The family of this 388-nucleotide RNA from Nonomuraea maritima is "Bacterial RNase P class A". The organism belongs to Nonomuraea, within Bacteria.
[Rfam]
RNA sequence: CGAGUCGGCCGGGCGGCCGCGUCGGGCCUUCGGGCCCGCCGAGGAAGGUCCGGGCUCCACAGGGCAGGGUGGUCGGUAACGCCGACCCGGGGUGACCCGCGGGACAGUGCCACAGAGAGCAAACCGCCUCCCGGUUGGCGGGAGGUAAGGGUGAAAGGGUGGUGUAAGAGACCACCAGCGCCCACGGUGACGUGGGCGGCUAGGUAAACCCCACCCGGAGCAAGGUCAAGAAGGAUCCCUCUCAGGAGGGUUCCGCGCGCGACGUUCGAGGGCUGCCCGCCCGAGCCGCGCGGGUAGACCGCUCGAGACCGCCGGCAACGGCGGUCCUAGAUGGAUGGUCGCCCCUUCGCAAGAAGGACAAAACCCGGCCUACAGGCCGACUCGUCAC
Numbered sequence: 001c002g003a004g005u006c007g008g009c010c011g012g013g014c015g016g017c018c019g020c021g022u023c024g025g026g027c028c029u030u031c032g033g034g035c036c037c038g039c040c041g042a043g044g045a046a047g048g049u050c051c052g053g054g055c056u057c058c059a060c061a062g063g064g065c066a067g068g069g070u071g072g073u074c075g076g077u078a079a080c081g082c083c084g085a086c087c088c089g090g091g092g093u094g095a096c097c098c099g100c101g102g103g104a105c106a107g108u109g110c111c112a113c114a115g116a117g118a119g120c121a122a123a124c125c126g127c128c129u130c131c132c133g134g135u136u137g138g139c140g141g142g143a144g145g146u147a148a149g150g151g152u153g154a155a156a157g158g159g160u161g162g163u164g165u166a167a168g169a170g171a172c173c174a175c176c177a178g179c180g181c182c183c184a185c186g187g188u189g190a191c192g193u194g195g196g197c198g199g200c201u202a203g204g205u206a207a208a209c210c211c212c213a214c215c216c217g218g219a220g221c222a223a224g225g226u227c228a229a230g231a232a233g234g235a236u237c238c239c240u241c242u243c244a245g246g247a248g249g250g251u252u253c254c255g256c257g258c259g260c261g262a263c264g265u266u267c268g269a270g271g272g273c274u275g276c277c278c279g280c281c282c283g284a285g286c287c288g289c290g291c292g293g294g295u296a297g298a299c300c301g302c303u304c305g306a307g308a309c310c311g312c313c314g315g316c317a318a319c320g321g322c323g324g325u326c327c328u329a330g331a332u333g334g335a336u337g338g339u340c341g342c343c344c345c346u347u348c349g350c351a352a353g354a355a356g357g358a359c360a361a362a363a364c365c366c367g368g369c370c371u372a373c374a375g376g377c378c379g380a381c382u383c384g385u386c387a388c
Stems, first nucleotide, its partner, number of pairs: 001384010011373001012343007020041002023038006046371003050368005055220004062278004067216005072086005087101001088099004102211002107209002109205003124150002126146008158176006178200001179198008224300004234291001237288001270282004307326008
Its family is annotated with tRNA processing, dimeric ribonuclease P complex and ribonuclease P activity in the Gene Ontology. Pairs were carried over by alignment from the consensus structure, which is taken from published work. By type it is a ribozyme.